[Rfam]
RNA sequence: CAAUGACAAAAGUAAACUUACUGAAAAGUAGGGGCACAAAGCCAUGAGUCUAAGGUGUUUCAUUACACUAUGAUAGUCAGGUUGCCAAA
Numbered sequence: 001c002a003a004u005g006a007c008a009a010a011a012g013u014a015a016a017c018u019u020a021c022u023g024a025a026a027a028g029u030a031g032g033g034g035c036a037c038a039a040a041g042c043c044a045u046g047a048g049u050c051u052a053a054g055g056u057g058u059u060u061c062a063u064u065a066c067a068c069u070a071u072g073a074u075a076g077u078c079a080g081g082u083u084g085c086c087a088a089a
Base pairs, nucleotide, nucleotide: 012037013036017032018031019030020029021028022027040083041082042081043080045079046078047077048074049073050072055068056067057066058065